[Rfam]
The record is a 102-nucleotide RNA sequence from Parageobacillus caldoxylosilyticus, which matches "Purine riboswitch aptamer" in Rfam. From the family's description: Riboswitches are metabolite binding domains within certain messenger RNAs that serve as precision sensors for their corresponding targets.

RNA sequence: AGCAUCAAUGGUUGUUACCUUCAUAUAUGCUUGGAAAUAUGGUCCAAGUGUCUCUACCGGGUCGCCGUAAACGACCUGACUAUGAAGGCAGAAUGAGCUAGA
Numbered sequence: 001a002g003c004a005u006c007a008a009u010g011g012u013u014g015u016u017a018c019c020u021u022c023a024u025a026u027a028u029g030c031u032u033g034g035a036a037a038u039a040u041g042g043u044c045c046a047a048g049u050g051u052c053u054c055u056a057c058c059g060g061g062u063c064g065c066c067g068u069a070a071a072c073g074a075c076c077u078g079a080c081u082a083u084g085a086a087g088g089c090a091g092a093a094u095g096a097g098c099u100a101g102a
Stems, first nucleotide, its partner, number of pairs: 018088008029049007058078007